RNA sequence: AAUUGAAUGAAAUAAAUCCUUUGUAUAUGUUCAAGAAUAAGGCUUGAACGUUUCUACCAGGCUGCCGUAAAUAGCCUGACUACAAGGGGUAGCAACCUUACG
Numbered sequence: 001a002a003u004u005g006a007a008u009g010a011a012a013u014a015a016a017u018c019c020u021u022u023g024u025a026u027a028u029g030u031u032c033a034a035g036a037a038u039a040a041g042g043c044u045u046g047a048a049c050g051u052u053u054c055u056a057c058c059a060g061g062c063u064g065c066c067g068u069a070a071a072u073a074g075c076c077u078g079a080c081u082a083c084a085a086g087g088g089g090u091a092g093c094a095a096c097c098u099u100a101c102g
Base pairs, nucleotide, nucleotide: 018088019087020086021085022084023083024082025081029049030048031047032046033045034044035043058078059077060076061075062074063073064072
RNA: Purine riboswitch aptamer